[Rfam]
RNA sequence: UUACUUACCUGGACGGGGUCAAUUGGCGAUCAUGAAGGUCCAUGGCCUAGGUUGGUAACCUCCAUUGCACUUAGGAGAGGUGCCUACCUAAGAUCGGCCCAAGUGGCCGAAUCUACGUCAUAAUUUGUUGCUGAGGGGGCCUGCGUUCGCGCGGCCCCUGC
Numbered sequence: 001u002u003a004c005u006u007a008c009c010u011g012g013a014c015g016g017g018g019u020c021a022a023u024u025g026g027c028g029a030u031c032a033u034g035a036a037g038g039u040c041c042a043u044g045g046c047c048u049a050g051g052u053u054g055g056u057a058a059c060c061u062c063c064a065u066u067g068c069a070c071u072u073a074g075g076a077g078a079g080g081u082g083c084c085u086a087c088c089u090a091a092g093a094u095c096g097g098c099c100c101a102a103g104u105g106g107c108c109g110a111a112u113c114u115a116c117g118u119c120a121u122a123a124u125u126u127g128u129u130g131c132u133g134a135g136g137g138g139g140c141c142u143g144c145g146u147u148c149g150c151g152c153g154g155c156c157c158c159u160g161c
Base pairs, nucleotide, nucleotide: 012119013118014117015116016048017047018046019045020044021043023042025040026039027038049089050088051087053086055083056082057081059079061077062075063074091114092113093112094110095109096108098106099105135159136158137157138156142153143152144151145150
A member of the RNA family "U1 spliceosomal RNA" from Solanum lycopersicum, 161 nucleotides long. Pairs were carried over by alignment from the consensus structure, which is taken from published work. It is annotated as a spliceosomal small nuclear RNA. For this family Rfam cites "Saccharomyces cerevisiae U1 small nuclear RNA secondary structure contains both universal and yeast-specific domains" (Kretzner et al., Proc Natl Acad Sci U S A, 1990). The sequence is in the family's curated seed alignment.